Nucleotides: 060
Base pairs, nucleotide, nucleotide: 008039009038010037012034013033014032015031016029017028018027019026022058023057024056025055
Number, partner (000 for none) and nucleotide at each position: 001000u002000a003000g004000a005000g006000g007000g008039g009038u010037c011000a012034g013033g014032g015031c016029c017028a018027g019026g020000a021000g022058c023057c024056c025055c026019c027018c028017u029016g030000a031015g032014c033013c034012c035000a036000g037010g038009a039008u040000a041000a042000c043000c044000c045000u046000a047000a048000c049000u050000g051000u052000u053000g054000g055025g056024g057023g058022g059000c060000a

A member of the RNA family "Gag/pol translational readthrough site" from Neogale vison, 60 nucleotides long. The family has 8 seed sequences and 3,368 matches in Rfam 15.1. The family's RNA type in Rfam is cis-regulatory element. Its family is annotated with viral translational readthrough in the Gene Ontology. A reference for the family is ten Dam et al. (1990), "RNA pseudoknots: translational frameshifting and readthrough on viral RNAs", Virus Genes. It scores 73 bits against the family's covariance model.